[Rfam]
This 61-nucleotide RNA from Pristionchus pacificus belongs to the Rfam family "mir-8364 microRNA precursor family". It scores 71 bits against the family's covariance model. The family has 13 seed sequences and 3,320 matches in Rfam 15.1. Rfam links the family to the GO terms RISC complex and miRNA-mediated post-transcriptional gene silencing.
RNA sequence: UCUUCAUUUCUCACACUCUCUCGCCUUUCUGACCGGUGAGGGGGUGUGCGAAAUGAAGAGA
Numbered sequence: 001u002c003u004u005c006a007u008u009u010c011u012c013a014c015a016c017u018c019u020c021u022c023g024c025c026u027u028u029c030u031g032a033c034c035g036g037u038g039a040g041g042g043g044g045u046g047u048g049c050g051a052a053a054u055g056a057a058g059a060g061a
Base pairs, nucleotide, nucleotide: 001059002058003057004056005055006054007053010050012048013047014046015045016044017043019041020040021039022038